[Rfam]
RNA sequence: CAUUCCUAUGAUGAGUUAAAUGUUAAAGUAGUGGUCUGAAAUCCAUUGAUGAAUACUGUAACCUCUGAGGAAUG
Dot-bracket structure: ((((((..............................................................))))))
Small nucleolar RNA R21: a 74-nucleotide sequence from Apium graveolens. For this family Rfam cites "Identification of 66 box C/D snoRNAs in Arabidopsis thaliana: extensive gene duplications generated multiple isoforms predicting new ribosomal RNA 2'-O-methylation sites" (Barneche et al., J Mol Biol, 2001). It is annotated as a C/D-box small nucleolar RNA. Pairs were carried over by alignment from the consensus structure, which was predicted with PFOLD. Rfam links the family to the GO terms RNA processing and nucleolus.